[Rfam]
RNA sequence: CAAUGUUCUCAGGGCGGGGUGCAAUUCCCCACCGGCGGUAAAGGCGGCGACGCCAAGCCCGCGAGCGCUUCGUGCAAGCGAAGGUCAGCAGAUCCGGUGUAACUCCGGAGCCGACGGUAUAGUCCGGAUGAAAGAGAACGGGA
Numbered sequence: 001c002a003a004u005g006u007u008c009u010c011a012g013g014g015c016g017g018g019g020u021g022c023a024a025u026u027c028c029c030c031a032c033c034g035g036c037g038g039u040a041a042a043g044g045c046g047g048c049g050a051c052g053c054c055a056a057g058c059c060c061g062c063g064a065g066c067g068c069u070u071c072g073u074g075c076a077a078g079c080g081a082a083g084g085u086c087a088g089c090a091g092a093u094c095c096g097g098u099g100u101a102a103c104u105c106c107g108g109a110g111c112c113g114a115c116g117g118u119a120u121a122g123u124c125c126g127g128a129u130g131a132a133a134g135a136g137a138a139c140g141g142g143a
Stems, first nucleotide, its partner, number of pairs: 004140007017029003031123002033113002035062004057111002065089002093109005115126003
RNA: FMN riboswitch aptamer (RFN element)